[Rfam]
Nucleotides: 099
Stems, first nucleotide, its partner, number of pairs: 001099008013041001015040003021031003025077001027075002042069004047065002049061004073091001078088004
Number, partner (000 for none) and nucleotide at each position: 001099u002098u003097c004096u005095u006094a007093u008092c009000a010000c011000g012000a013041g014000c015040g016039g017038u018000g019000g020000a021031g022030g023029g024000a025077c026000u027075g028074g029023c030022c031021c032000u033000a034000u035000g036000a037000a038017a039016c040015c041013c042069g043068g044067c045066a046000a047065c048064c049061a050060g051059c052058a053000u054000u055000u056000u057000a058052u059051g060050c061049u062000a063000u064048g065047g066045u067044g068043c069042u070000a071000a072000a073091u074028c075027c076000u077025g078088c079087a080086g081085u082000u083000a084000a085081a086080c087079u088078g089000a090000a091073a092008g093007a094006u095005a096004a097003g098002a099001g